[Rfam]
RNA sequence: AUUACCUUUUAAUGAAUUGUCCAGAGAGGCAAAGAAGGGGAAUUUGGCAAGUGGGUACAUCAGUAUUGAGGUACCUUAGCUUGUCAUACCUCCUAGCCUCGCGAAUCAACUUUGCGAGGCAUUUUUUCU
Number, nucleotide and partner (000 for none) at each position: 001a000002u000003u040004a000005c038006c037007u036008u035009u034010u000011a000012a000013u000014g000015a000016a000017u032018u031019g030020u029021c028022c000023a000024g000025a000026g000027a000028g021029g020030c019031a018032a017033a000034g009035a008036a007037g006038g005039g000040g003041a000042a000043u000044u000045u000046g000047g000048c000049a000050a000051g000052u000053g076054g075055g074056u073057a072058c071059a000060u069061c068062a067063g000064u000065a000066u000067u062068g061069a060070g000071g058072u057073a056074c055075c054076u053077u000078a000079g000080c000081u000082u000083g000084u000085c000086a000087u000088a000089c000090c000091u000092c000093c000094u000095a000096g120097c119098c118099u117100c116101g115102c114103g113104a112105a111106u000107c000108a000109a000110c000111u105112u104113u103114g102115c101116g100117a099118g098119g097120c096121a000122u000123u000124u000125u000126u000127u000128c000129u000